[Rfam]
Nucleotides: 304
Base pairs, nucleotide, nucleotide: 001040002039003038004023005022006021007020008019009018010017028037029036030035044303045302046301047300048299049298050297051296052295053294056291057290058288059287060286061284062283063282064281065280066279068277069276070275071274072273073272074271075270076269077268078262079261080260081259082258083257085255087253088252089251091250097248098247099246100245101244102243103242104241106236107235109234110233111232112231113230115227116226117225118224119223120222121221122220123219125164126163127162128161129160130159131158132157133156135154136153137152138151139150140149141148142147165170172217173216174215175214176213183208184207185206190201191200192199
Number, partner (000 for none) and nucleotide at each position: 001040g002039c003038c004023g005022a006021g007020c008019u009018u010017g011000g012000u013000a014000a015000c016000g017010c018009a019008g020007g021006c022005u023004u024000g025000u026000a027000a028037c029036c030035c031000a032000a033000g034000u035030g036029g037028g038003g039002g040001c041000a042000c043000u044303a045302g046301g047300g048299u049298g050297a051296u052295u053294g054000g055000a056291u057290g058288u059287u060286g061284g062283g063282c064281c065280a066279a067000u068277u069276u070275g071274g072273c073272u074271g075270g076269c077268u078262g079261g080260a081259u082258u083257c084000u085255a086000g087253u088252a089251g090000c091250u092000u093000a094000a095000u096000u097248c098247u099246g100245g101244c102243c103242u104241g105000c106236c107235c108000g109234u110233u111232c112231c113230a114000a115227g116226c117225g118224g119223a120222g121221a122220g123219u124000u125164g126163g127162g128161c129160u130159a131158u132157g133156g134000u135154g136153c137152u138151u139150g140149g141148g142147c143000g144000a145000a146000g147142g148141c149140u150139u151138a152137g153136g154135c155000u156133u157132c158131a159130u160129g161128g162127c163126u164125c165170u166000u167000a168000g169000a170165g171000u172217g173216g174215a175214g176213g177000g178000c179000a180000a181000c182000g183208c184207g185206u186000u187000a188000g189000g190201c191200u192199g193000g194000u195000u196000u197000u198000a199192c200191a201190g202000a203000g204000c205000a206185a207184c208183g209000a210000c211000u212000a213176c214175u215174u216173c217172c218000c219123g220122c221121u222120c223119u224118c225117u226116g227115c228000a229000g230113u231112g232111g233110a234109a235107g236106g237000a238000u239000a240000a241104c242103a243102g244101g245100u246099u247098g248097g249000u250091g251089c252088u253087g254000c255085u256000u257083g258082g259081a260080u261079c262078c263000a264000u265000u266000a267000a268077a269076g270075c271074u272073a273072g274071u275070u276069g277068g278000g279066u280065u281064g282063g283062u284061u285000c286060u287059a288058a289000u290057u291056g292000g293000a294053c295052a296051a297050u298049c299048a300047c301046u302045u303044u304000u
The family of this 304-nucleotide sequence from Sesamum indicum is "Plant signal recognition particle RNA". A reference for the family is Batey et al. (2000), "Crystal structure of the ribonucleoprotein core of the signal recognition particle", Science. Rfam classes the family as a non-coding RNA gene. Pairs were carried over by alignment from the consensus structure, which is taken from published work.